[Rfam]
RNA: Glycine riboswitch aptamer
RNA sequence: GCCGGUCGCGCGGGAGAGCACUCCCAGUCGAGUCGCCGAAGGCGUAACCCCCCGGAACCGCUCAGGCAAAAGGACCGCGCACGGCAA
Numbered sequence: 001g002c003c004g005g006u007c008g009c010g011c012g013g014g015a016g017a018g019c020a021c022u023c024c025c026a027g028u029c030g031a032g033u034c035g036c037c038g039a040a041g042g043c044g045u046a047a048c049c050c051c052c053c054g055g056a057a058c059c060g061c062u063c064a065g066g067c068a069a070a071a072g073g074a075c076c077g078c079g080c081a082c083g084g085c086a087a
Stems, first nucleotide, its partner, number of pairs: 008080006020033004035067003038063002042061003048055002
Dot-bracket structure: .......((((((......((((......)))).(((((..(((...((....))...))))).))).......)))))).......